[Rfam]
RNA sequence: UGACAGCACUCGGGAGAGACCCGUCGAGGCGGGCGCCGAAGGGGCAAUUCCUCCCCGGAACCUCUCAGGCCCAUGGACCGAGUGCCACAG
Numbered sequence: 001u002g003a004c005a006g007c008a009c010u011c012g013g014g015a016g017a018g019a020c021c022c023g024u025c026g027a028g029g030c031g032g033g034c035g036c037c038g039a040a041g042g043g044g045c046a047a048u049u050c051c052u053c054c055c056c057g058g059a060a061c062c063u064c065u066c067a068g069g070c071c072c073a074u075g076g077a078c079c080g081a082g083u084g085c086c087a088c089a090g
Base pairs, nucleotide, nucleotide: 006085007084008083009082010081011080012079013078020033021032022031023030035070036069037068038066039065042064043063044062048058049057
RNA: Glycine riboswitch aptamer
Organism: Kribbella antiqua